RNA sequence: GGCGCAUGCCCUUUUGGGCGUUUCCUCCCUAGACUUGGGCCGCUCGCCGCGAGGUGGGCGGCCUCUUUCGUCCGAG
Numbered sequence: 001g002g003c004g005c006a007u008g009c010c011c012u013u014u015u016g017g018g019c020g021u022u023u024c025c026u027c028c029c030u031a032g033a034c035u036u037g038g039g040c041c042g043c044u045c046g047c048c049g050c051g052a053g054g055u056g057g058g059c060g061g062c063c064u065c066u067u068u069c070g071u072c073c074g075a076g
Stems, first nucleotide, its partner, number of pairs: 008019004039062009